Background:
The family of this 179-nucleotide RNA sequence from Bacillus sp. 1NLA3E is "Lysine riboswitch aptamer". It scores 134 bits against the family's covariance model. The base pairs follow the family's consensus structure, which is taken from published work. Its family is annotated with lysine biosynthetic process in the Gene Ontology. Rfam describes the family as follows. Riboswitches are metabolite binding domains within certain messenger RNAs that serve as precision sensors for their corresponding targets.
RNA sequence: AGUGAAGGUAGAGGUGCGAACUUAAUCAGUAAAAGCUUGGAGAAGGAUGAGCUUCAAGGAAAAGCUUUGAAAGGAAAGUUCGCCGAAGUGAAGAUAGUACUCAUUGCUUUCUUUGCUGGUCCUGCAUUGAAUAAAUGUUGGAUUGUCAAGACGUCUUGUCUUGGAGAGCUAUCUCACUG
Numbered sequence: 001a002g003u004g005a006a007g008g009u010a011g012a013g014g015u016g017c018g019a020a021c022u023u024a025a026u027c028a029g030u031a032a033a034a035g036c037u038u039g040g041a042g043a044a045g046g047a048u049g050a051g052c053u054u055c056a057a058g059g060a061a062a063a064g065c066u067u068u069g070a071a072a073g074g075a076a077a078g079u080u081c082g083c084c085g086a087a088g089u090g091a092a093g094a095u096a097g098u099a100c101u102c103a104u105u106g107c108u109u110u111c112u113u114u115g116c117u118g119g120u121c122c123u124g125c126a127u128u129g130a131a132u133a134a135a136u137g138u139u140g141g142a143u144u145g146u147c148a149a150g151a152c153g154u155c156u157u158g159u160c161u162u163g164g165a166g167a168g169c170u171a172u173c174u175c176a177c178u179g
Base pairs, nucleotide, nucleotide: 006174007173008172009171010170011169016083017082018081019080020079021078022077023076032068033067034066035065036064037063038062087117088116089115090114091113092112093111094110096108097107098106118144119143120142121141122140124138125137126136127135128134146164147163148162149161150160151159152158
Dot-bracket structure: .....((((((....((((((((........(((((((.......................))))))).......))))))))...((((((((.(((.......))).))))))))(((((.(((((.....))))).))))).(((((((.....)))))))....)))))).....